[Rfam]
RNA: c-di-AMP riboswitch aptamer (ydaO/yuaA leader)
RNA sequence: CCACACCCACCGACGAACUCAUCCACGGCAGGAGCGGGGGACCCAGGUAAGUCGCCGUGCCGGUCACCGCACCGGAACGGCUGGGGGUGAAGCCGCGCCCGCAGGGGCGCGGCCGGGCACUCUCCCGCCCGAACCCGACAGCUCACCUCGCAGGCGCAGGAGAGGAACCCA
Dot-bracket structure: ((....((......................)).((((((....(.......................................)(((.....((((((........))))))..((((........))))...))).........)))))).)).................